About this RNA
Shown here is a 71-nucleotide RNA from Ceratopteris richardii, a member of the family "Small nucleolar RNA SNORD18".
[Rfam]
RNA sequence: AGAACGUGAUGAGUUGCUUUUGGUCCGUGUUUCUGACCUCAUGCUGAUGUGUAGUAAAGCUCUCUGAUUCU
Numbered sequence: 001a002g003a004a005c006g007u008g009a010u011g012a013g014u015u016g017c018u019u020u021u022g023g024u025c026c027g028u029g030u031u032u033c034u035g036a037c038c039u040c041a042u043g044c045u046g047a048u049g050u051g052u053a054g055u056a057a058a059g060c061u062c063u064c065u066g067a068u069u070c071u
Stems, first nucleotide, its partner, number of pairs: 001071004
Dot-bracket structure: ((((...............................................................))))

The literature on the family includes a 2001 paper in EMBO J by Giorgi et al., "Release of U18 snoRNA from its host intron requires interaction of Nop1p with the Rnt1p endonuclease". Rfam links the family to the GO terms RNA processing and nucleolus. It scores 42 bits against the family's covariance model. It is annotated as a C/D-box small nucleolar RNA.